[Rfam]
RNA sequence: AUGCAUCUAGCACGGUUUGAACCUACAAAUUCGCCAAUUAUGAAUUGGGUGCUUUAAUCAUUCAGCCACAGAUGC
Numbered sequence: 001a002u003g004c005a006u007c008u009a010g011c012a013c014g015g016u017u018u019g020a021a022c023c024u025a026c027a028a029a030u031u032c033g034c035c036a037a038u039u040a041u042g043a044a045u046u047g048g049g050u051g052c053u054u055u056a057a058u059c060a061u062u063c064a065g066c067c068a069c070a071g072a073u074g075c
Base pairs, nucleotide, nucleotide: 003075004074005073006072007071008070010026012024014022041068042067045065046064047063048062049061050060051059
RNA: Plastid-ycf2 5UTR RNA